mir-2807 microRNA precursor family: an 84-nucleotide sequence from Bombyx mori. Pairs were carried over by alignment from the consensus structure, which was predicted with RNAalifold. For this family Rfam cites "MicroRNAs of Bombyx mori identified by Solexa sequencing" (Liu et al., BMC Genomics, 2010). The source organism's lineage runs through Eukaryota, Protostomia, Panarthropoda, Bombycidae and Bombyx. Rfam links the family to the GO terms miRNA-mediated post-transcriptional gene silencing and RISC complex.
[Rfam]
RNA sequence: UUAACGCAAAUUUGUAUGCAGUUGGAACAACGCCCCUGGCGGCAAACGUAGGCAAACGUUCCAAAUCCAUACAAAUUUGAUUUA
Numbered sequence: 001u002u003a004a005c006g007c008a009a010a011u012u013u014g015u016a017u018g019c020a021g022u023u024g025g026a027a028c029a030a031c032g033c034c035c036c037u038g039g040c041g042g043c044a045a046a047c048g049u050a051g052g053c054a055a056a057c058g059u060u061c062c063a064a065a066u067c068c069a070u071a072c073a074a075a076u077u078u079g080a081u082u083u084a
Base pairs, nucleotide, nucleotide: 008078009077010076011075012074013073014072015071016070018068020066022064023063024062025061026060027059028058034052035051039047